Rfam assigns this 125-nucleotide RNA from Atopobium deltae to the family "FMN riboswitch aptamer (RFN element)".
Pairs were carried over by alignment from the consensus structure, which is taken from published work.
[Rfam]
RNA sequence: GCGUAGUUUCAGGGCGGGGUGCAAUUCCCCACUGGCGGUAAGUAAGAAGCCCGCGCACCGCAUAAGCGGUUGAUCUGGUUAGAUUCCAGAGCCAACGGUUACAGUCCGGAUGAAAGAAACGAGGU
Numbered sequence: 001g002c003g004u005a006g007u008u009u010c011a012g013g014g015c016g017g018g019g020u021g022c023a024a025u026u027c028c029c030c031a032c033u034g035g036c037g038g039u040a041a042g043u044a045a046g047a048a049g050c051c052c053g054c055g056c057a058c059c060g061c062a063u064a065a066g067c068g069g070u071u072g073a074u075c076u077g078g079u080u081a082g083a084u085u086c087c088a089g090a091g092c093c094a095a096c097g098g099u100u101a102c103a104g105u106c107c108g109g110a111u112g113a114a115a116g117a118a119a120c121g122a123g124g125u
Stems, first nucleotide, its partner, number of pairs: 004122001006120005017029003031105002033094002035054004049092002057070003074090005096108003
NCBI's taxonomy places the organism under Bacteria, Actinomycetota, Coriobacteriales, Atopobiaceae, Atopobium.